[Rfam]
RNA sequence: UGUUCUCUGAGAUGCAGGUCAGUGGGUUAAGUCCCUGAGCCGAUAAAUUUUUUGUUAGGGACGCAGUUUAUUAGCUAUUGUGCAAGCUCGGCAUGUACCGAGAAGCCUGCGGCUAGUUGUUGUGUUCCGCCUUGAACCUUAGGGUUCAAGGGCUGACACCCGCAACCGCAUCUUGGAGACACU
Numbered sequence: 001u002g003u004u005c006u007c008u009g010a011g012a013u014g015c016a017g018g019u020c021a022g023u024g025g026g027u028u029a030a031g032u033c034c035c036u037g038a039g040c041c042g043a044u045a046a047a048u049u050u051u052u053u054g055u056u057a058g059g060g061a062c063g064c065a066g067u068u069u070a071u072u073a074g075c076u077a078u079u080g081u082g083c084a085a086g087c088u089c090g091g092c093a094u095g096u097a098c099c100g101a102g103a104a105g106c107c108u109g110c111g112g113c114u115a116g117u118u119g120u121u122g123u124g125u126u127c128c129g130c131c132u133u134g135a136a137c138c139u140u141a142g143g144g145u146u147c148a149a150g151g152g153c154u155g156a157c158a159c160c161c162g163c164a165a166c167c168g169c170a171u172c173u174u175g176g177a178g179a180c181a182c183u
Stems, first nucleotide, its partner, number of pairs: 004179012017167003031153004036148006058128003062124006070117007082106002087102005
The record is a 183-nucleotide RNA from Pseudoalteromonas tunicata, which matches "6S / SsrS RNA" in Rfam. The sequence is in the family's curated seed alignment. NCBI's taxonomy places the organism under Bacteria, Gammaproteobacteria, Alteromonadales, Pseudoalteromonas, Pseudoalteromonas tunicata. E. coli 6S RNA was the first non coding RNA to be sequenced, but its function was unknown until recently. It consists of 184 nucleotides that fold into an extended hairpin structure with a large single-stranded internal bulge. The 6S RNA specifically associates with RNA polymerase holoenzyme containing the sigma70 specificity factor. This interaction represses expression from a sigma70-dependent promoter during stationary phase. 6S RNA homologs have recently been identified in most bacterial genomes.